This 74-nucleotide RNA sequence from Mesitornis unicolor belongs to the Rfam family "mir-551 microRNA precursor family".
Lineage of the source: Eukaryota > Vertebrata > Archelosauria > Coelurosauria > Mesitornis.
Rfam 15.1 lists 1,097 matches to the family in 627 species.
Rfam links the family to the GO terms miRNA-mediated post-transcriptional gene silencing and RISC complex.
The literature on the family includes a 2008 paper in Genome Res by Murchison et al., "Conservation of small RNA pathways in platypus".

[Rfam]
RNA sequence: UGCCCCUGGGAGCCAAGCGUCGGUGGAGCCUGUGGGUACCAAUUUGGGCGACCCACGCUUGGCUUCCAGGGUCU
Number, nucleotide and partner (000 for none) at each position: 001u000002g073003c000004c071005c070006c069007u068008g000009g066010g065011a064012g063013c062014c061015a000016a059017g058018c000019g000020u000021c000022g053023g052024u051025g000026g000027a000028g049029c048030c047031u046032g000033u000034g000035g000036g000037u000038a000039c000040c000041a000042a000043u000044u000045u000046g031047g030048g029049c028050g000051a024052c023053c022054c000055a000056c000057g000058c017059u016060u000061g014062g013063c012064u011065u010066c009067c000068a007069g006070g005071g004072u000073c002074u000